[Rfam]
RNA: sodF sRNA
Nucleotides: 090
Stems, first nucleotide, its partner, number of pairs: 001044003005041005012034004018028002052090016
Number, partner (000 for none) and nucleotide at each position: 001044u002043c003042g004000u005041c006040c007039u008038g009037c010000u011000c012034g013033u014032g015031a016000u017000c018028g019027u020000c021000u022000u023000c024000u025000c026000a027019a028018c029000c030000u031015u032014c033013a034012c035000u036000u037009g038008c039007g040006g041005g042003c043002g044001g045000a046000a047000g048000a049000a050000a051000c052090g053089g054088a055087c056086g057085g058084c059083c060082c061081c062080c063079g064078c065077g066076a067075g068000g069000a070000c071000g072000u073000g074000a075067c076066u077065c078064g079063c080062g081061g082060g083059g084058g085057c086056c087055g088054u089053c090052c